[Rfam]
Nucleotides: 241
Stems, first nucleotide, its partner, number of pairs: 016224003020220006028212006035205003039201001041200001045196002
Number, partner (000 for none) and nucleotide at each position: 001000u002000g003000g004000u005000g006000g007000g008000u009000u010000u011000g012000a013000u014000u015000g016224g017223a018222g019000a020220c021219a022218g023217g024216g025215a026000c027000g028212a029211g030210g031209c032208a033207g034000a035205g036204c037203a038000u039201g040000g041200g042000a043000u044000g045196g046195g047000g048000c049000c050000a051000u052000c053000a054000a055000c056000a057000a058000c059000a060000a061000a062000a063000u064000u065000u066000c067000c068000a069000a070000u071000u072000u073000c074000c075000g076000u077000u078000u079000g080000c081000u082000u083000g084000c085000c086000c087000a088000c089000a090000a091000a092000a093000u094000g095000g096000a097000g098000g099000g100000a101000c102000u103000u104000g105000u106000c107000a108000g109000g110000a111000g112000a113000g114000g115000u116000a117000u118000c119000a120000g121000g122000c123000a124000g125000a126000g127000a128000g129000a130000a131000g132000g133000u134000g135000c136000c137000u138000c139000c140000c141000u142000g143000g144000u145000g146000a147000a148000a149000u150000g151000g152000u153000g154000a155000u156000g157000g158000c159000c160000u161000g162000a163000g164000a165000g166000a167000g168000c169000u170000c171000a172000g173000c174000u175000g176000g177000u178000g179000u180000c181000c182000u183000g184000g185000u186000g187000u188000u189000g190000u191000u192000g193000c194000u195046u196045c197000c198000u199000c200041c201039c202000c203037u204036g205035c206000a207033c208032u209031g210030c211029c212028u213000c214000u215025u216024c217023c218022c219021u220020g221000g222018c223017u224016c225000c226000c227000c228000a229000c230000c231000g232000u233000c234000g235000c236000c237000c238000u239000u240000g241000c

This 241-nucleotide RNA from Sorghum bicolor belongs to the Rfam family "MIR408 microRNA precursor family". The family's consensus secondary structure was predicted with WAR. For this family Rfam cites "High throughput approaches reveal splicing of primary microRNA transcripts and tissue specific expression of mature microRNAs in Vitis vinifera" (Mica et al., BMC Genomics, 2009).